Description: Rfam assigns this 238-nucleotide sequence from Amborella trichopoda to the family "MIR8562 microRNA precursor family". Rfam links the family to the GO terms RISC complex and miRNA-mediated post-transcriptional gene silencing.
[Rfam]
RNA sequence: UUUUUUACAAAUCGGAAUGAUUUGAAAUUUGGAGCAUGCGUUCAUAAAAAAUAGGUGAAUCUACGAAAAAUAUCAAAAAAAUAUUUUACAUGAAAUAAAUUGACCAAAAUACCUCUAAAAAGUUUCAGGGGUAUUUUGGUCAUUUUUUAGUGAAUUAUUUUUUUUAUAUUUUUAUUAGGUGUGCUUCACUAAGAUGUACACAUGUUCCAAAUUUUAGAUCAUUCCGAUUUGUAGAAAA
Number, nucleotide and partner (000 for none) at each position: 001u238002u237003u236004u235005u234006u233007a232008c231009a230010a229011a228012u227013c226014g225015g224016a223017a222018u221019g220020a219021u218022u217023u216024g215025a214026a213027a212028u211029u210030u209031g208032g207033a206034g205035c000036a203037u202038g201039c000040g199041u198042u000043c196044a195045u194046a000047a000048a000049a000050a000051a000052u000053a000054g000055g000056u000057g000058a000059a000060u000061c178062u177063a176064c000065g000066a173067a172068a171069a170070a169071u168072a167073u166074c000075a164076a163077a162078a161079a160080a159081a000082u000083a000084u000085u000086u000087u000088a000089c000090a000091u000092g000093a000094a000095a000096u000097a146098a145099a144100u000101u142102g141103a140104c139105c138106a137107a136108a135109a134110u133111a132112c131113c130114u129115c000116u000117a124118a123119a000120a000121a000122g000123u118124u117125u000126c000127a000128g000129g114130g113131g112132u111133a110134u109135u108136u107137u106138g105139g104140u103141c102142a101143u000144u099145u098146u097147u000148u000149a000150g000151u000152g000153a000154a000155u000156u000157a000158u000159u080160u079161u078162u077163u076164u075165u000166a073167u072168a071169u070170u069171u068172u067173u066174a000175u000176u063177a062178g061179g000180u000181g000182u000183g000184c000185u000186u000187c000188a000189c000190u000191a000192a000193g000194a045195u044196g043197u000198a041199c040200a000201c038202a037203u036204g000205u034206u033207c032208c031209a030210a029211a028212u027213u026214u025215u024216a023217g022218a021219u020220c019221a018222u017223u016224c015225c014226g013227a012228u011229u010230u009231g008232u007233a006234g005235a004236a003237a002238a001